[Rfam]
Rfam assigns this 73-nucleotide RNA from a Pirellulaceae bacterium to the family "tRNA". Transfer RNA (tRNA) molecules are approximately 80 nucleotides in length. The base pairs follow the family's consensus structure, which is taken from published work.

RNA sequence: GGGGCGGUAGCUCAAUUGGGAGAGCACCUCGUUCGCAAUGAGGAGGUUGAGGGUUCGAUCCCCUUCCGCUCCA
Dot-bracket structure: (((((((..((((........)))).(((((.......))))).....(((((.......)))))))))))).
Numbered sequence: 001g002g003g004g005c006g007g008u009a010g011c012u013c014a015a016u017u018g019g020g021a022g023a024g025c026a027c028c029u030c031g032u033u034c035g036c037a038a039u040g041a042g043g044a045g046g047u048u049g050a051g052g053g054u055u056c057g058a059u060c061c062c063c064u065u066c067c068g069c070u071c072c073a
Stems, first nucleotide, its partner, number of pairs: 001072007010025004027043005049065005